[Rfam]
RNA sequence: AACUCAACAGGAGUCUUAAUUUAUUUCUUAACCUUUGCUUUGUAAGGGUCUCUGGCGUUUUUAAAUGAUUGUUUCUUCUCGCUUUA
Numbered sequence: 001a002a003c004u005c006a007a008c009a010g011g012a013g014u015c016u017u018a019a020u021u022u023a024u025u026u027c028u029u030a031a032c033c034u035u036u037g038c039u040u041u042g043u044a045a046g047g048g049u050c051u052c053u054g055g056c057g058u059u060u061u062u063a064a065a066u067g068a069u070u071g072u073u074u075c076u077u078c079u080c081g082c083u084u085u086a
Base pairs, nucleotide, nucleotide: 009079010078011077012076016064017063018062019061025055026054031049032048033047034046035045036044037043038042
Record summary: Rfam assigns this 86-nucleotide RNA sequence from Ursus americanus to the family "Stem loopII regulatory element in POLB". Rfam 15.1 lists 197 matches to the family in 138 species. NCBI's taxonomy places the organism under Eukaryota, Teleostomi, Amniota, Carnivora, Ursus. Rfam links the family to the GO term regulation of RNA stability. The family's RNA type in Rfam is cis-regulatory element.